[Rfam]
RNA sequence: GCGCUGGUGUAGCUCAGUGGUUACUUCCUACAACAAAUCCUACUGGGUUUCCUGUAUCAUCGAACCACGGGUGCUGUCCAGUGUUAUC
Numbered sequence: 001g002c003g004c005u006g007g008u009g010u011a012g013c014u015c016a017g018u019g020g021u022u023a024c025u026u027c028c029u030a031c032a033a034c035a036a037a038u039c040c041u042a043c044u045g046g047g048u049u050u051c052c053u054g055u056a057u058c059a060u061c062g063a064a065c066c067a068c069g070g071g072u073g074c075u076g077u078c079c080a081g082u083g084u085u086a087u088c
Base pairs, nucleotide, nucleotide: 002083003082004081005080006079007078012072013071014070015069017068018067019066020065025064026063027062
RNA: Vault RNA